[Rfam]
RNA: FMN riboswitch aptamer (RFN element)
RNA sequence: AAUUUCCUUCGGGGCAGGGUGAAAUUCCCUACCGGCGGUGAUGAGGGCUUGUCCCCUCUCAGUCCGUGACCCGGUUUCUUUAUUGAAAACGGUGGAUUUGGUGAAAUUCCAAAGCCGACAGUAUAGUCUGGAUGGGAGAAGGAAUGA
Numbered sequence: 001a002a003u004u005u006c007c008u009u010c011g012g013g014g015c016a017g018g019g020u021g022a023a024a025u026u027c028c029c030u031a032c033c034g035g036c037g038g039u040g041a042u043g044a045g046g047g048c049u050u051g052u053c054c055c056c057u058c059u060c061a062g063u064c065c066g067u068g069a070c071c072c073g074g075u076u077u078c079u080u081u082a083u084u085g086a087a088a089a090c091g092g093u094g095g096a097u098u099u100g101g102u103g104a105a106a107u108u109c110c111a112a113a114g115c116c117g118a119c120a121g122u123a124u125a126g127u128c129u130g131g132a133u134g135g136g137a138g139a140a141g142g143a144a145u146g147a
Stems, first nucleotide, its partner, number of pairs: 004144007017029003031127002033117002035067004062115002071092002097113005119130003